The family of this 53-nucleotide sequence from Actinomadura darangshiensis is "L17-Actino-Proteobacteria ribosomal protein leader". Lineage of the source: Bacteria > Actinomycetota > Actinomycetes > Streptosporangiales > Actinomadura.

RNA sequence: UCCCCGGCCGUCCCGGGACCAGCUGACGCCGGUACCUGAUACGGCCGGUGCAG
Numbered sequence: 001u002c003c004c005c006g007g008c009c010g011u012c013c014c015g016g017g018a019c020c021a022g023c024u025g026a027c028g029c030c031g032g033u034a035c036c037u038g039a040u041a042c043g044g045c046c047g048g049u050g051c052a053g
Stems, first nucleotide, its partner, number of pairs: 001018004005010001023053003027050007